[Rfam]
RNA sequence: AAUGAAAUGUGGAAAGGGAAGAGUACAUCUCGAAACCAUAAGAGAGGAAAACCAGCGUAUAUCGUUGCUGAGAGGUUUUCUUGGUGUUAAAGAUGGAAAGUCGCCCUGGAGUUGUGGUUUUGAACAGAAAAGAGAUUCUUUUCUUAGUAGUUAUUGCCGGAUCAGCCCGUUAACGCCUUGAGUGUACAGAUCUGUUUUCGUUUGUUUUUUGGAAAAUGAAAGUUUGUGUUGCUAGGAAGAUCUGUAAACAAAGGUGGUACCGCGAGGAAUAUAAUCCCUUCGUCCUUUGA
Numbered sequence: 001a002a003u004g005a006a007a008u009g010u011g012g013a014a015a016g017g018g019a020a021g022a023g024u025a026c027a028u029c030u031c032g033a034a035a036c037c038a039u040a041a042g043a044g045a046g047g048a049a050a051a052c053c054a055g056c057g058u059a060u061a062u063c064g065u066u067g068c069u070g071a072g073a074g075g076u077u078u079u080c081u082u083g084g085u086g087u088u089a090a091a092g093a094u095g096g097a098a099a100g101u102c103g104c105c106c107u108g109g110a111g112u113u114g115u116g117g118u119u120u121u122g123a124a125c126a127g128a129a130a131a132g133a134g135a136u137u138c139u140u141u142u143c144u145u146a147g148u149a150g151u152u153a154u155u156g157c158c159g160g161a162u163c164a165g166c167c168c169g170u171u172a173a174c175g176c177c178u179u180g181a182g183u184g185u186a187c188a189g190a191u192c193u194g195u196u197u198u199c200g201u202u203u204g205u206u207u208u209u210u211g212g213a214a215a216a217u218g219a220a221a222g223u224u225u226g227u228g229u230u231g232c233u234a235g236g237a238a239g240a241u242c243u244g245u246a247a248a249c250a251a252a253g254g255u256g257g258u259a260c261c262g263c264g265a266g267g268a269a270u271a272u273a274a275u276c277c278c279u280u281c282g283u284c285c286u287u288u289g290a
Base pairs, nucleotide, nucleotide: 007112008111015107016106017105018104026095027094028093029092030091036084037083038082046081047080048079049078050077051076052075053074115156116155117154118153121150158169159168160167185246186245187244188243189242190241191240192239193238251287252286253285254284262283263282264281265280266279